[Rfam]
RNA: Bacterial small subunit ribosomal RNA, nucleotides 1 to 562
Organism: Hanamia caeni
RNA sequence: ACAAUGGAGAGUUUGAUCCUGGCUCAGGAUGAACGCUAGCGGCAGGCUUAAUACAUGCAAGUCGUGGGGCAGCAUGGGGUAGCAAUACUCUGAUGGCGACCGGCAAACGGGUGAGGAACAUGUACGCAACCUUCCUUUAACUGGAGAAUAGCCCCUCGAAAGAGGGAUUAAUACUCCGUAACAUCCCGACACAGCAUUGUGACGGGAUUAUAGCUCCGGCGGUUAAAGAUGGGCGUGCACCUGAUUAGAUAGUUGGCGGGGUAACGGCCCACCAAGUCUGCGAUCAGUAACUGGUGUGAGAGCACGACCAGUCACACGGGCACUGAGACACGGGUCCGACUCCUACGGGAGGCAGCAGUAAGGAAUAUUGGUCAAUGGACGCAAGUCUGAACCAGCCAUGCCGCGUGGAGGAUUAAGGCCCUCUGGGUUGUAAACUCCUUUUAUCUGGGAAGAAAUGUACUUUUUCUUGAGUACUUGACGGUACCAGAGGAAUAAGCACCGGCUAACUCCGUGCCAGCAGCCGCGGUAAUACGGAGGGUGCAAGCGUUAUCCGGAUUCACUG
Numbered sequence: 001a002c003a004a005u006g007g008a009g010a011g012u013u014u015g016a017u018c019c020u021g022g023c024u025c026a027g028g029a030u031g032a033a034c035g036c037u038a039g040c041g042g043c044a045g046g047c048u049u050a051a052u053a054c055a056u057g058c059a060a061g062u063c064g065u066g067g068g069g070c071a072g073c074a075u076g077g078g079g080u081a082g083c084a085a086u087a088c089u090c091u092g093a094u095g096g097c098g099a100c101c102g103g104c105a106a107a108c109g110g111g112u113g114a115g116g117a118a119c120a121u122g123u124a125c126g127c128a129a130c131c132u133u134c135c136u137u138u139a140a141c142u143g144g145a146g147a148a149u150a151g152c153c154c155c156u157c158g159a160a161a162g163a164g165g166g167a168u169u170a171a172u173a174c175u176c177c178g179u180a181a182c183a184u185c186c187c188g189a190c191a192c193a194g195c196a197u198u199g200u201g202a203c204g205g206g207a208u209u210a211u212a213g214c215u216c217c218g219g220c221g222g223u224u225a226a227a228g229a230u231g232g233g234c235g236u237g238c239a240c241c242u243g244a245u246u247a248g249a250u251a252g253u254u255g256g257c258g259g260g261g262u263a264a265c266g267g268c269c270c271a272c273c274a275a276g277u278c279u280g281c282g283a284u285c286a287g288u289a290a291c292u293g294g295u296g297u298g299a300g301a302g303c304a305c306g307a308c309c310a311g312u313c314a315c316a317c318g319g320g321c322a323c324u325g326a327g328a329c330a331c332g333g334g335u336c337c338g339a340c341u342c343c344u345a346c347g348g349g350a351g352g353c354a355g356c357a358g359u360a361a362g363g364a365a366u367a368u369u370g371g372u373c374a375a376u377g378g379a380c381g382c383a384a385g386u387c388u389g390a391a392c393c394a395g396c397c398a399u400g401c402c403g404c405g406u407g408g409a410g411g412a413u414u415a416a417g418g419c420c421c422u423c424u425g426g427g428u429u430g431u432a433a434a435c436u437c438c439u440u441u442u443a444u445c446u447g448g449g450a451a452g453a454a455a456u457g458u459a460c461u462u463u464u465u466c467u468u469g470a471g472u473a474c475u476u477g478a479c480g481g482u483a484c485c486a487g488a489g490g491a492a493u494a495a496g497c498a499c500c501g502g503c504u505a506a507c508u509c510c511g512u513g514c515c516a517g518c519a520g521c522c523g524c525g526g527u528a529a530u531a532c533g534g535a536g537g538g539u540g541c542a543a544g545c546g547u548u549a550u551c552c553g554g555a556u557u558c559a560c561u562g
Stems, first nucleotide, its partner, number of pairs: 009025005027552004032548006039404006045397002047362001052360003056357003061104003066101002069097002075092007111315003121239007130232002135228007143177004151168001153166005183208006191200003213220002241287003248278003253275004258270003290312004294305004317338005340351004368394001370393003376389005407438004417429004444488005452479001458473003496541005507536005517524002